[Rfam]
RNA sequence: CGGUUUUCCUAAAUCGUCGUGAGACGGACCUUGGAAAACCUAGUAUUUAAAUAACUAGGUC
Numbered sequence: 001c002g003g004u005u006u007u008c009c010u011a012a013a014u015c016g017u018c019g020u021g022a023g024a025c026g027g028a029c030c031u032u033g034g035a036a037a038a039c040c041u042a043g044u045a046u047u048u049a050a051a052u053a054a055c056u057a058g059g060u061c
Base pairs, nucleotide, nucleotide: 002040003039004038005037006036007035008034009033015026016025017024018023027061028060029059030058031057
The record is a 61-nucleotide RNA from Crinivirus ipomeae, which matches "3'-terminal pseudoknot in SPCSV" in Rfam.
Pairs were carried over by alignment from the consensus structure, which is taken from published work.
By type it is a cis-regulatory element.